[Rfam]
The record is a 75-nucleotide RNA sequence from Streptomyces gilvosporeus, which matches "ASpks TB sRNA" in Rfam. Rfam classes the family as an antisense RNA. Lineage of the source: Bacteria > Bacillati > Actinomycetota > Kitasatosporales > Streptomyces.
RNA sequence: CUUCACCGACCCCAGCAGCAGCGGGCGUUCGGGGUCGCGGUCCUGGCCGUAGGUGGCCAGCAGCGCCUGGGCCUC
Numbered sequence: 001c002u003u004c005a006c007c008g009a010c011c012c013c014a015g016c017a018g019c020a021g022c023g024g025g026c027g028u029u030c031g032g033g034g035u036c037g038c039g040g041u042c043c044u045g046g047c048c049g050u051a052g053g054u055g056g057c058c059a060g061c062a063g064c065g066c067c068u069g070g071g072c073c074u075c
Base pairs, nucleotide, nucleotide: 016024035070036069038065039064043060044059045058047056048055049054